[Rfam]
The family of this 181-nucleotide RNA sequence is "Group II catalytic intron D1-D4-3". Rfam 15.1 lists 4,274 matches to the family in 1,585 species.

RNA sequence: UCCAUCGAGAGGCGGAGUCUGAAGGAAGCUGGAUGCCAGCGGGCAAACUCCCGAACCGACGAACAGAAAUCACAUAGUAGACCGUAGAGGAACGGACGAGUGUGCAUAACAACACAAGAUCCAAUGCUGCCCGAAUCCCGUGCGGUAAAUGUGGCGGUUAUGUGGAAGAAAAAAAGGCGGC
Numbered sequence: 001u002c003c004a005u006c007g008a009g010a011g012g013c014g015g016a017g018u019c020u021g022a023a024g025g026a027a028g029c030u031g032g033a034u035g036c037c038a039g040c041g042g043g044c045a046a047a048c049u050c051c052c053g054a055a056c057c058g059a060c061g062a063a064c065a066g067a068a069a070u071c072a073c074a075u076a077g078u079a080g081a082c083c084g085u086a087g088a089g090g091a092a093c094g095g096a097c098g099a100g101u102g103u104g105c106a107u108a109a110c111a112a113c114a115c116a117a118g119a120u121c122c123a124a125u126g127c128u129g130c131c132c133g134a135a136u137c138c139c140g141u142g143c144g145g146u147a148a149a150u151g152u153g154g155c156g157g158u159u160a161u162g163u164g165g166a167a168g169a170a171a172a173a174a175a176g177g178c179g180g181c
Stems, first nucleotide, its partner, number of pairs: 001016003005012002032181001043178002048168002051165003054159005070154006081146003085142001087141001089139002092136001094122003100115004